A member of the RNA family "Streptomyces sRNA 4677" from Streptomyces sp. NRRL F-4428, 250 nucleotides long. The family has 12 seed sequences and 563 matches in Rfam 15.1. NCBI's taxonomy places the organism under Bacteria, Bacillati, Actinomycetes, Kitasatosporales, Streptomyces.
[Rfam]
RNA sequence: GACGCCGGUGGCGGGGACGGUCCCAGAACUCAAGACACGGGGAGAAAGCACCACACCAAACCCCACCCCUCCCGCCCCGUGACGCACACUCACUCGCUUGAGUGAAUAUGCCCAACUUGGCUGGCUUCGGGGCGGGUUGCCUGAUCUACGCUCAGUGCGACAGACCACACACCGCUGACAUGCGUCGGCCCCCGCCGGGACUGCAAUCCCGGUGCGGGGGCCUGACCACCGAGGAAGUAGGCGCUUCCCA
Numbered sequence: 001g002a003c004g005c006c007g008g009u010g011g012c013g014g015g016g017a018c019g020g021u022c023c024c025a026g027a028a029c030u031c032a033a034g035a036c037a038c039g040g041g042g043a044g045a046a047a048g049c050a051c052c053a054c055a056c057c058a059a060a061c062c063c064c065a066c067c068c069c070u071c072c073c074g075c076c077c078c079g080u081g082a083c084g085c086a087c088a089c090u091c092a093c094u095c096g097c098u099u100g101a102g103u104g105a106a107u108a109u110g111c112c113c114a115a116c117u118u119g120g121c122u123g124g125c126u127u128c129g130g131g132g133c134g135g136g137u138u139g140c141c142u143g144a145u146c147u148a149c150g151c152u153c154a155g156u157g158c159g160a161c162a163g164a165c166c167a168c169a170c171a172c173c174g175c176u177g178a179c180a181u182g183c184g185u186c187g188g189c190c191c192c193c194g195c196c197g198g199g200a201c202u203g204c205a206a207u208c209c210c211g212g213u214g215c216g217g218g219g220g221c222c223u224g225a226c227c228a229c230c231g232a233g234g235a236a237g238u239a240g241g242c243g244c245u246u247c248c249c250a
Stems, first nucleotide, its partner, number of pairs: 007230004016076001018074002090105006120156005187222005193216003197210004233248005

From the family's description: Located in the intergenic region between anti-sigma factor SCO4677 gene and a putative regulatory protein gene SCO4676. scr4677 expression requires the SCO4677 activity and scr4677 sRNA itself seem to affect the levels of the SCO4676-associated transcripts. A search with the family's covariance model found it, with a score of 176 bits. The family's RNA type in Rfam is small RNA.